[Rfam]
RNA sequence: UAAGACAAGUAGAAGCACCCGCUUCUCACCUGAUUGACACACAAAUGUAGUUAACAGGUACAAUAAGUCCGACUUAUUUGUAAUGAAUAUUGGAUGUGUGGGUGCAACGUGUACCGACACUUUUUUAAUGUG
Numbered sequence: 001u002a003a004g005a006c007a008a009g010u011a012g013a014a015g016c017a018c019c020c021g022c023u024u025c026u027c028a029c030c031u032g033a034u035u036g037a038c039a040c041a042c043a044a045a046u047g048u049a050g051u052u053a054a055c056a057g058g059u060a061c062a063a064u065a066a067g068u069c070c071g072a073c074u075u076a077u078u079u080g081u082a083a084u085g086a087a088u089a090u091u092g093g094a095u096g097u098g099u100g101g102g103u104g105c106a107a108c109g110u111g112u113a114c115c116g117a118c119a120c121u122u123u124u125u126u127a128a129u130g131u132g
Base pairs, nucleotide, nucleotide: 011026012025013024014023015022016021028059029058030057036052037051038050039048040047097119098118099117101115102114103113104112105111106110
Rfam assigns this 132-nucleotide RNA sequence from Gracilibacillus boraciitolerans to the family "Ribosomal protein L20 leader". From the family's description: This family is a putative r-protein leader autoregulatory structure found in B. subtilis and other low-GC Gram-positive bacteria. It is located in the 5' untranslated regions of mRNAs encoding initiation factor 3 followed by ribosomal proteins L35 and L20 (infC-rpmI-rplT). A Rho-independent transcription terminator structure that is probably involved in regulation is included at the 3' end. Rfam classes the family as a cis-regulatory leader. A reference for the family is Zengel and Lindahl (1994), "Diverse mechanisms for regulating ribosomal protein synthesis in Escherichia coli", Prog Nucleic Acid Res Mol Biol. Gene Ontology term of the family: regulation of gene expression. It scores 80 bits against the family's covariance model. The organism belongs to Gracilibacillus boraciitolerans, within Bacteria.